The record is a 65-nucleotide RNA sequence from Podargus strigoides, which matches "Selenocysteine insertion sequence 1" in Rfam. The organism belongs to Podargus, within Eukaryota. Rfam classes the family as a cis-regulatory element. The incorporation of selenocysteine into a protein sequence is directed by an in-frame UGA codon (usually a stop codon) within the coding region of the mRNA. Selenoprotein mRNAs contain a conserved secondary structure in the 3' UTR that is required for the distinction of UGA stop from UGA selenocysteine. The selenocysteine insertion sequence (SECIS) is around 60 nt in length and adopts a hairpin structure which is sufficiently well-defined and conserved to act as a computational screen for selenoprotein genes. On this family, see Walczak et al., RNA 1996: "A novel RNA structural motif in the selenocysteine insertion element of eukaryotic selenoprotein mRNAs".
[Rfam]
Nucleotides: 065
Stems, first nucleotide, its partner, number of pairs: 001065002005061001014050010029038003
Number, partner (000 for none) and nucleotide at each position: 001065c002064a003000g004000c005061c006000c007000c008000c009000a010000u011000g012000a013000c014050g015049g016048u017047c018046u019045g020044u021043c022042u023041u024000u025000a026000a027000g028000c029038c030037a031036g032000c033000u034000c035000g036031c037030u038029g039000g040000g041023g042022a043021g044020g045019c046018a047017g048016a049015c050014c051000u052000g053000a054000a055000g056000u057000u058000c059000u060000g061005g062000c063000g064002u065001g